RNA sequence: ACUGGAACCAGUUGUGUGGUCAAAUGAAUGUGUUUUGUCCACUCUUGCUGGCUUCCUAGAGUAAAGGGGAGGUCUCUGUCUGCUUUAGCAGAGCCCACUGAAGCAGAUCGUUCCCCUCCACACAUG
Numbered sequence: 001a002c003u004g005g006a007a008c009c010a011g012u013u014g015u016g017u018g019g020u021c022a023a024a025u026g027a028a029u030g031u032g033u034u035u036u037g038u039c040c041a042c043u044c045u046u047g048c049u050g051g052c053u054u055c056c057u058a059g060a061g062u063a064a065a066g067g068g069g070a071g072g073u074c075u076c077u078g079u080c081u082g083c084u085u086u087a088g089c090a091g092a093g094c095c096c097a098c099u100g101a102a103g104c105a106g107a108u109c110g111u112u113c114c115c116c117u118c119c120a121c122a123c124a125u126g
Base pairs, nucleotide, nucleotide: 004056005055006054008051009050010049011048012047016042017041018040019039021037026034027033068119069118070117071116072115076110078108079107080106082104083103084102085101086100087099088098